This 49-nucleotide RNA sequence from Streptomyces tsukubensis belongs to the Rfam family "raiA-hairpin RNA". By type it is a small RNA.
RNA sequence: CGCCUAGUCCGAGGCUCCGGUUCAUCACCGGGGUCUGGUGCAAGAGGGA
Numbered sequence: 001c002g003c004c005u006a007g008u009c010c011g012a013g014g015c016u017c018c019g020g021u022u023c024a025u026c027a028c029c030g031g032g033g034u035c036u037g038g039u040g041c042a043a044g045a046g047g048g049a
Stems, first nucleotide, its partner, number of pairs: 013035008

It is one of the family's seed sequences. The organism belongs to Streptomyces tsukubensis, within Bacteria.